[Rfam]
RNA sequence: CUCUUAUUUAGAGAGGUGGAGGGAAGUGCCCUAUGAAGCCCGGCAACCGUCACAAUGUGACACGGUGCCAAUUCACGCAAAGUGAGAACUUUGGAAGAUGAGAG
Numbered sequence: 001c002u003c004u005u006a007u008u009u010a011g012a013g014a015g016g017u018g019g020a021g022g023g024a025a026g027u028g029c030c031c032u033a034u035g036a037a038g039c040c041c042g043g044c045a046a047c048c049g050u051c052a053c054a055a056u057g058u059g060a061c062a063c064g065g066u067g068c069c070a071a072u073u074c075a076c077g078c079a080a081a082g083u084g085a086g087a088a089c090u091u092u093g094g095a096a097g098a099u100g101a102g103a104g
Stems, first nucleotide, its partner, number of pairs: 001104008013041001015040003021031003026076003042069004047065002049061004073096001078093006
Dot-bracket structure: ((((((((....(.(((...(((..[[[)))......))))((((.((((((.....))))..))))))...(]]].((((((....))))))..)))))))))

Background:
Shown here is a 104-nucleotide RNA sequence from Rummeliibacillus sp. TYF005, a member of the family "SAM riboswitch aptamer (S box leader)". Pairs were carried over by alignment from the consensus structure, which is taken from published work.